The family of this 112-nucleotide RNA sequence from Actinophytocola sp. is "mraW RNA". NCBI's taxonomy places the organism under Bacteria, Actinomycetes, Pseudonocardiales, Pseudonocardiaceae, Actinophytocola. A search with the family's covariance model found it, with a score of 61 bits.
[Rfam]
RNA sequence: GGAAGCGGAUGUCGUGAGGCCUCUGUCCGCACGGAGAUGGCCCUGGUGCACCUUCCCCGGCACCAGGUUCACGGCGGAGCGGGCGGAGACCUGACGGCAUCCGCGCCACCUU
Numbered sequence: 001g002g003a004a005g006c007g008g009a010u011g012u013c014g015u016g017a018g019g020c021c022u023c024u025g026u027c028c029g030c031a032c033g034g035a036g037a038u039g040g041c042c043c044u045g046g047u048g049c050a051c052c053u054u055c056c057c058c059g060g061c062a063c064c065a066g067g068u069u070c071a072c073g074g075c076g077g078a079g080c081g082g083g084c085g086g087a088g089a090c091c092u093g094a095c096g097g098c099a100u101c102c103g104c105g106c107c108a109c110c111u112u
Stems, first nucleotide, its partner, number of pairs: 010099006018091002021088010032077001034075001038071003042067008